Annotation:
RT-2 RNA: a 177-nucleotide RNA. Rfam's curators put it in the seed alignment.
RNA sequence: AAGAAUAUUAUAUAUUCUUAAAGAUGACUAAUGAUAAUUAUACUAGGACGCUUCUUGCAUGGUUAAAGUUUUAUUCAUUUACUUUAAUUUCAUUGGUAUAUAUUUAAGUAAGUAGAUUAAAUGAAUCGAUAAAUUUAUUGAGUCUUAUACAUUAGUUUCAAAGGAGAAUUUUGGUUC
Number, nucleotide and partner (000 for none) at each position: 001a019002a018003g017004a016005a015006u014007a013008u012009u000010a000011u000012a008013u007014a006015u005016u004017c003018u002019u001020a000021a000022a000023g000024a000025u000026g157027a156028c155029u154030a153031a152032u151033g150034a000035u149036a104037a103038u102039u000040a000041u098042a097043c096044u095045a094046g000047g000048a000049c000050g058051c057052u000053u000054c000055u000056u000057g051058c050059a000060u000061g089062g088063u087064u086065a085066a084067a083068g082069u081070u000071u000072u000073a000074u000075u000076c000077a000078u000079u000080u000081a069082c068083u067084u066085u065086a064087a063088u062089u061090u000091c000092a000093u000094u045095g044096g043097u042098a041099u000100a000101u000102a038103u037104u036105u000106a000107a000108g148109u147110a146111a145112g144113u000114a134115g126116a000117u000118u000119a000120a000121a000122u000123g000124a000125a000126u115127c000128g000129a000130u000131a000132a000133a000134u114135u000136u000137a000138u000139u000140g000141a000142g000143u000144c112145u111146u110147a109148u108149a035150c033151a032152u031153u030154a029155g028156u027157u026158u000159c000160a000161a000162a000163g000164g000165a000166g000167a000168a000169u000170u000171u000172u000173g000174g000175u000176u000177c000